[Rfam]
RNA sequence: UCAUGAAACGAUGAGUUCUAGCAGACCAGUAAUGAUUCUUGCAGGAAUGAUCGCACGAUUCAAAGAACAUCUAAGGGACUGAGUGUGC
Numbered sequence: 001u002c003a004u005g006a007a008a009c010g011a012u013g014a015g016u017u018c019u020a021g022c023a024g025a026c027c028a029g030u031a032a033u034g035a036u037u038c039u040u041g042c043a044g045g046a047a048u049g050a051u052c053g054c055a056c057g058a059u060u061c062a063a064a065g066a067a068c069a070u071c072u073a074a075g076g077g078a079c080u081g082a083g084u085g086u087g088c
Stems, first nucleotide, its partner, number of pairs: 002087004
The family of this 88-nucleotide sequence from Aegilops tauschii is "Small nucleolar RNA SNORD25". For this family Rfam cites "Identification of 10 novel snoRNA gene clusters from Arabidopsis thaliana" (Qu et al., Nucleic Acids Res, 2001). Rfam 15.1 lists 985 matches to the family in 241 species. A search with the family's covariance model found it, with a score of 71 bits. Rfam classes the family as a C/D-box small nucleolar RNA. Lineage of the source: Eukaryota > Liliopsida > commelinids > Aegilops > Aegilops tauschii. The family is grouped with related families in Rfam's "SNORD25 clan".